This 402-nucleotide part of an RNA from Capsaspora owczarzaki belongs to the Rfam family "Eukaryotic large subunit ribosomal RNA".
RNA sequence: GAAGUGUUGUUGCAAUAGUAAUUCAACAUAGUACGAGAGGAACCGUUGAUUCAGAUAAUUGGUAUUUGCGGUUGGUUGAAAAGCCAAUGCCGCGAAGCUACCAUCUGUAGGAUUAUGACUGAACGCCUCUAAGUCAGAAUCCGUGCUAGAACGCAACGAUAAUUUACCUCUGGGCUUGUUAGAUGAACAAGCAUAGACGAGCAAUCGUCCAAAGUCAUAGUAUACAGGUUCCAGGUGCUGUCGGAGAAAAGCCGGCAGUGCUAGCCUGUGCAUUACAAUUUCAAGCUUGCCCGGAGUCAAAUCUUUUGCAGACGACUUAAAUAUGAAACAGGGUAUUGUAAGUAGUAGAGUGGCCUUUGUUGCCACGAUCUACUGAGAUUAAGCCUUUGUUUAACGAUUUUA
Numbered sequence: 001g002a003a004g005u006g007u008u009g010u011u012g013c014a015a016u017a018g019u020a021a022u023u024c025a026a027c028a029u030a031g032u033a034c035g036a037g038a039g040g041a042a043c044c045g046u047u048g049a050u051u052c053a054g055a056u057a058a059u060u061g062g063u064a065u066u067u068g069c070g071g072u073u074g075g076u077u078g079a080a081a082a083g084c085c086a087a088u089g090c091c092g093c094g095a096a097g098c099u100a101c102c103a104u105c106u107g108u109a110g111g112a113u114u115a116u117g118a119c120u121g122a123a124c125g126c127c128u129c130u131a132a133g134u135c136a137g138a139a140u141c142c143g144u145g146c147u148a149g150a151a152c153g154c155a156a157c158g159a160u161a162a163u164u165u166a167c168c169u170c171u172g173g174g175c176u177u178g179u180u181a182g183a184u185g186a187a188c189a190a191g192c193a194u195a196g197a198c199g200a201g202c203a204a205u206c207g208u209c210c211a212a213a214g215u216c217a218u219a220g221u222a223u224a225c226a227g228g229u230u231c232c233a234g235g236u237g238c239u240g241u242c243g244g245a246g247a248a249a250a251g252c253c254g255g256c257a258g259u260g261c262u263a264g265c266c267u268g269u270g271c272a273u274u275a276c277a278a279u280u281u282c283a284a285g286c287u288u289g290c291c292c293g294g295a296g297u298c299a300a301a302u303c304u305u306u307u308g309c310a311g312a313c314g315a316c317u318u319a320a321a322u323a324u325g326a327a328a329c330a331g332g333g334u335a336u337u338g339u340a341a342g343u344a345g346u347a348g349a350g351u352g353g354c355c356u357u358u359g360u361u362g363c364c365a366c367g368a369u370c371u372a373c374u375g376a377g378a379u380u381a382a383g384c385c386u387u388u389g390u391u392u393a394a395c396g397a398u399u400u401u402a
Base pairs, nucleotide, nucleotide: 006160007159008158009157010156011155012154013153016148017147018146019145021051023049024048025047026046027045052107053106054105055104056103060100061099062098067094068093069092070091071090072087073086074085075084076083077082110142111141116136117135118134119133120132169295170294171293172292173291174290175289299400300399301398302397303396304320305319308316326392327391328390329389330388331386332385333384335379336378342373343372344371345370347369350366351365352364353363354362